[Rfam]
RNA: Burkholderia RNA 7 (anti-hemB)
RNA sequence: CCUACCGCUUAUUCUCCCUGAGCGGGCGCCCAUCGACCCUAUUCGAUUAUGGCGUUAUUUUCCCCGGCAACUAGACAUUGCCGGGGUUUUUUUU
Numbered sequence: 001c002c003u004a005c006c007g008c009u010u011a012u013u014c015u016c017c018c019u020g021a022g023c024g025g026g027c028g029c030c031c032a033u034c035g036a037c038c039c040u041a042u043u044c045g046a047u048u049a050u051g052g053c054g055u056u057a058u059u060u061u062c063c064c065c066g067g068c069a070a071c072u073a074g075a076c077a078u079u080g081c082c083g084g085g086g087u088u089u090u091u092u093u094u
Base pairs, nucleotide, nucleotide: 005025006024007023008022009021028053029052030051033046034045035044062086063085064084065083066082067081068080069079
Dot-bracket structure: ....(((((...........)))))..(((..(((........)))....)))........((((((((.........))))))))........